[Rfam]
Description:
The family of this 413-nucleotide RNA from Oceanicoccus sagamiensis is "Bacterial RNase P class A". The organism belongs to Oceanicoccus, within Bacteria. Rfam links the family to the GO terms dimeric ribonuclease P complex, tRNA processing and ribonuclease P activity. It scores 316 bits against the family's covariance model. The family's RNA type in Rfam is ribozyme. Ribonuclease P (RNase P) is a ubiquitous endoribonuclease, found in archaea, bacteria and eukarya as well as chloroplasts and mitochondria. Its best characterised activity is the generation of mature 5'-ends of tRNAs by cleaving the 5'-leader elements of precursor-tRNAs.
Nucleotides: 413
Stems, first nucleotide, its partner, number of pairs: 002408009011398001012377007020084002023081006089396003093393005098267004105313002110263005115129005130144001131142004145258002150256002152252002167197002169193003174190002176187004205223006224247001225245005230239003271334004281325006305318005341360008
Number, partner (000 for none) and nucleotide at each position: 001000c002408g003407a004406g005405c006404c007403a008402g009401c010400c011398a012377g013376a014375c015374a016373g017372u018371c019000g020084c021083u022000g023081g024080g025079c026078u027077c028076u029000u030000c031000u032000c033000u034000c035000u036000g037000u038000u039000u040000u041000u042000u043000c044000a045000c046000u047000u048000a049000u050000g051000u052000a053000c054000u055000u056000a057000u058000a059000g060000u061000g062000a063000u064000g065000a066000a067000c068000a069000u070000g071000g072000g073000g074000g075000u076028a077027g078026g079025g080024c081023c082000g083021a084020g085000a086000g087000g088000a089396a090395a091394g092000u093393c094392c095391g096390g097389g098267c099266u100265c101264c102000a103000u104000a105313g106312g107000g108000u109000a110263g111262a112261a113260c114259g115129c116128c117127a118126g119125g120000u121000a122000a123000c124000g125119c126118c127117u128116g129115g130144g131142g132141g133140g134139c135000g136000c137000a138000a139134g140133c141132c142131u143000a144130c145258g146257g147000a148000a149000a150256g151255u152252g153251c154000a155000g156000c157000a158000g159000a160000g161000a162000g163000u164000a165000g166000a167197c168196c169193g170192c171191c172000g173000a174190u175189g176187g177186c178185u179184a180000g181000c182000a183000a184179u185178a186177g187176c188000a189175c190174a191171g192170g193169u194000a195000a196168g197167g198000g199000u200000g201000a202000a203000a204000g205223g206222g207221u208220g209219c210218g211000g212000u213000a214000a215000g216000a217000g218210c219209g220208c221207a222206c223205c224247g225245c226244g227243c228242g229241a230239c231238u232237g233000g234000u235000a236000a237232c238231a239230g240000c241229u242228c243227g244226u245225g246000g247224c248000a249000u250000g251153g252152u253000a254000a255151a256150c257146c258145c259114c260113g261112u262111u263110c264101g265100g266099a267098g268000c269000a270000a271334g272333a273332c274331c275000a276000a277000a278000u279000a280000g281325g282324c283323c284322c285321a286320c287000u288000a289000u290000a291000c292000c293000u294000u295000a296000g297000g298000g299000u300000a301000a302000u303000a304000g305318g306317c307316g308315u309314g310000u311000a312106c313105c314309c315308g316307c317306g318305c319000u320286g321285u322284g323283g324282g325281c326000g327000g328000g329000u330000a331274g332273g333272u334271u335000g336000c337000u338000a339000a340000a341360g342359c343358a344357u345356u346355g347354u348353g349000g350000c351000g352000a353348c354347a355346u356345a357344a358343u359342g360341c361000g362000u363000a364000g365000a366000u367000g368000a369000a370000u371018g372017a373016c374015u375014g376013u377012c378000c379000a380000a381000c382000g383000a384000c385000a386000g387000a388000a389097c390096c391095c392094g393093g394091c395090u396089u397000a398011u399000c400010g401009g402008c403007u404006g405005g406004c407003u408002c409000a410000a411000u412000c413000u